[Rfam]
RNA sequence: GGAUGUGAGGGCGAUCUGGCUGCGACAUCUGUCACCCCCAUUGAUCACCAGGGUUGAUUUGGCUGAUCUAGCUGGCUAGGCGGGUGUCCCCUUCCUCCCUCACCGCUCCAUGUGCGUCCCUCCCGAAGCUGCGCGCUCGGUCGAAGAGGACAACCUUCCCCGAAUAGAGGAGGACCAGUCUUCGGUCAAGGGUAUACGAGUAGCUGCGCUCCCCUGCUAGAACCUCCAAAACAAGCUCUGAGUAGUCCAGUGGCUUGGGAGAUUUUUGUUGAGUCUGACGCUACCACAUAAGGUGAGCAGCUCCUGAGAGCUUCACC
Numbered sequence: 001g002g003a004u005g006u007g008a009g010g011g012c013g014a015u016c017u018g019g020c021u022g023c024g025a026c027a028u029c030u031g032u033c034a035c036c037c038c039c040a041u042u043g044a045u046c047a048c049c050a051g052g053g054u055u056g057a058u059u060u061g062g063c064u065g066a067u068c069u070a071g072c073u074g075g076c077u078a079g080g081c082g083g084g085u086g087u088c089c090c091c092u093u094c095c096u097c098c099c100u101c102a103c104c105g106c107u108c109c110a111u112g113u114g115c116g117u118c119c120c121u122c123c124c125g126a127a128g129c130u131g132c133g134c135g136c137u138c139g140g141u142c143g144a145a146g147a148g149g150a151c152a153a154c155c156u157u158c159c160c161c162g163a164a165u166a167g168a169g170g171a172g173g174a175c176c177a178g179u180c181u182u183c184g185g186u187c188a189a190g191g192g193u194a195u196a197c198g199a200g201u202a203g204c205u206g207c208g209c210u211c212c213c214c215u216g217c218u219a220g221a222a223c224c225u226c227c228a229a230a231a232c233a234a235g236c237u238c239u240g241a242g243u244a245g246u247c248c249a250g251u252g253g254c255u256u257g258g259g260a261g262a263u264u265u266u267u268g269u270u271g272a273g274u275c276u277g278a279c280g281c282u283a284c285c286a287c288a289u290a291a292g293g294u295g296a297g298c299a300g301c302u303c304c305u306g307a308g309a310g311c312u313u314c315a316c317c
Stems, first nucleotide, its partner, number of pairs: 001109003005103007013094002018091002024088010035075002038071001040069001043068004048062002117173002119170004123140004128136002141163003148159003203264001205262001209261002212258002216254002224252001226250001292317003295311001
Notes: The record is a 317-nucleotide RNA sequence from Mus spicilegus, which matches "7SK RNA" in Rfam. Pairs were carried over by alignment from the consensus structure, which is taken from published work. A reference for the family is Wassarman and Steitz (1991), "Structural analyses of the 7SK ribonucleoprotein (RNP), the most abundant human small RNP of unknown function", Mol Cell Biol. The organism belongs to Mus, within Eukaryota. It is annotated as a non-coding RNA gene. Rfam describes the family as follows. 7SK was discovered as an abundant small nuclear RNA in the mid-70s but a possible function has only recently been suggested. Two independent studies have found that 7SK RNA binds the CDK9/cyclin T complex (known as elongation factor P-TEFb). P-TEFb activates transcription by phosphorylating the C-terminal domain of RNA polymerase II. This process is negatively regulated by the 7SK RNP. The secondary structure of 7SK RNA shown here was proposed by Wasserman and Steitz on the basis of chemical modification and enzymatic cleavage experiments. This family contains a number of annotated pseudogenes and 7SK derived repeats.